Shown here is a 377-nucleotide sequence from Novipirellula artificiosorum, a member of the family "transfer-messenger RNA". The base pairs follow the family's consensus structure, which is taken from published work. A reference for the family is Williams (2002), "The tmRNA Website: invasion by an intron", Nucleic Acids Res.
RNA sequence: GGGGGCGAUUUGGAUUCGACCGGAUGAUUUGAAGCACCGCUUGCGUGUCGUGGUUGAUCAGUUGGCCACGUAAAAAGCUGAUCACACUUUUAGUUGCAGACGAAAGUUUCGCAAUGGCCGCCUAAGAACAGGUAGCCCGGACUGAUGGGGACCGCCGGAGUCGCUUGAAUGUCCGUCACAAUUCCGGAUCGCGCGGCGUCCUACUCGAGACGCGUCGCGCUAGAAACGAUUCGAGUUAGUGGAGUGUGGAACCUGUCAAACAGUGCCACACAAAGCGAAAAGGCGCUUUCGAGGCGCUACAAAUGGUUUGACUACACACGUAGACGGCGAUGUGGAUGCAUCGCGGGACGCGGGUUCAAUUCCCGCCGCCUCCAUCA
Dot-bracket structure: (((((((............(((((((.......(((.((((..((((([[[[[...(((((((..]]]]].....)))))))................................(.(((...........))).)..(((((..(.(..(((..[[[[[))).).)....))))).......]]]]]...(((((((((...[.[......)))))))))..............].].((...(((((..((..[[[[....))..)))))...))................................]]]]...))))).....)))).))).....)))).)))...(((((.......))))))))))))....